[Rfam]
RNA sequence: UGCGACCCAUAAAAGGAGUAGUUCAUCAACCCGGAGCUACUUUCCCAUAUUUCGAAUUC
Numbered sequence: 001u002g003c004g005a006c007c008c009a010u011a012a013a014a015g016g017a018g019u020a021g022u023u024c025a026u027c028a029a030c031c032c033g034g035a036g037c038u039a040c041u042u043u044c045c046c047a048u049a050u051u052u053c054g055a056a057u058u059c
Stems, first nucleotide, its partner, number of pairs: 015043010
Plastid-psbN 5UTR RNA: a 59-nucleotide RNA from Dichanthelium oligosanthes. The match comes from Rfam's covariance-model search (64 bits). Rfam describes the family as follows. Plastid psbN is a non-coding RNA (ncRNA) recognised in plastids. It was reported as a conserved 11 stem-loop in the prime untranslated region (5UTR) of psbN genes. It has been reported that the motif is retained in a subset of mature transcripts in barley, which can suggests a possible role in transcript alternative 5 prime processing. By type it is a cis-regulatory element. The base pairs follow the family's consensus structure, which was predicted with LocARNA.